RNA sequence: GGUUACAAGUUUGACACCAUAGCAAAAGCACUCAUAGUGCAGCCUGUCAGAUUCCAGUGAAUCUGCAAAUUCUGCU
Numbered sequence: 001g002g003u004u005a006c007a008a009g010u011u012u013g014a015c016a017c018c019a020u021a022g023c024a025a026a027a028g029c030a031c032u033c034a035u036a037g038u039g040c041a042g043c044c045u046g047u048c049a050g051a052u053u054c055c056a057g058u059g060a061a062u063c064u065g066c067a068a069a070u071u072c073u074g075c076u
Base pairs, nucleotide, nucleotide: 013044017042021076022075023074024073026071027070028040029039030038048065049064050063051062052061053060054059
Rfam assigns this 76-nucleotide sequence from Crocodylus porosus to the family "Mammalian CPEB3 ribozyme". The family's consensus secondary structure is taken from published work. It scores 47 bits against the family's covariance model.